[Rfam]
RNA: 6S / SsrS RNA
Organism: Gallionella capsiferriformans
RNA sequence: UGUCCCCUGCGGUGUUCGUCAGACUCAUAUAUUCUUUGAACCAAGUAACUUUACAGGUCGCGACCCACACGCCAUUGUUGUGAACGUCCCUUGCGGAUGAUCCUGAUAUGACAGGGAAGUGACCCUCUUGAACCUUUAGGUUCGAGAUGCUGGGUCAACGGCACAGGCGGGGGGCUU
Numbered sequence: 001u002g003u004c005c006c007c008u009g010c011g012g013u014g015u016u017c018g019u020c021a022g023a024c025u026c027a028u029a030u031a032u033u034c035u036u037u038g039a040a041c042c043a044a045g046u047a048a049c050u051u052u053a054c055a056g057g058u059c060g061c062g063a064c065c066c067a068c069a070c071g072c073c074a075u076u077g078u079u080g081u082g083a084a085c086g087u088c089c090c091u092u093g094c095g096g097a098u099g100a101u102c103c104u105g106a107u108a109u110g111a112c113a114g115g116g117a118a119g120u121g122a123c124c125c126u127c128u129u130g131a132a133c134c135u136u137u138a139g140g141u142u143c144g145a146g147a148u149g150c151u152g153g154g155u156c157a158a159c160g161g162c163a164c165a166g167g168c169g170g171g172g173g174g175c176u177u
Stems, first nucleotide, its partner, number of pairs: 002175009012164004017160003033147003037144006056124003060120002064116002071112001073110003082102002085099005